[Rfam]
RNA sequence: GCACCUGAAUCUUUCCUAUUCCUUGCUGUGCAGUGCAGGUCUGGGGACAGUUGGUGCUACAGCACAGCAGCAGAAAUCCAGAUGGGUUACUUUCCACUCGCUUGGAACUCAUCUCUACAGCUCUGCAACAUUU
Number, nucleotide and partner (000 for none) at each position: 001g057002c056003a055004c054005c053006u000007g000008a000009a000010u000011c000012u000013u047014u046015c045016c044017u043018a042019u000020u000021c039022c038023u000024u000025g000026c000027u000028g000029u000030g000031c000032a000033g000034u000035g000036c000037a000038g022039g021040u000041c000042u018043g017044g016045g015046g014047a013048c000049a000050g000051u000052u000053g005054g004055u003056g002057c001058u000059a000060c000061a000062g000063c000064a000065c000066a000067g126068c125069a124070g123071c000072a000073g000074a000075a000076a000077u000078c000079c000080a114081g113082a112083u111084g110085g109086g108087u107088u000089a000090c000091u000092u000093u000094c105095c104096a103097c000098u000099c000100g000101c000102u000103u096104g095105g094106a000107a087108c086109u085110c084111a083112u082113c081114u080115c000116u000117a000118c000119a000120g000121c000122u000123c070124u069125g068126c067127a000128a000129c000130a000131u000132u000133u000
RNA: Small nucleolar RNA SNORA55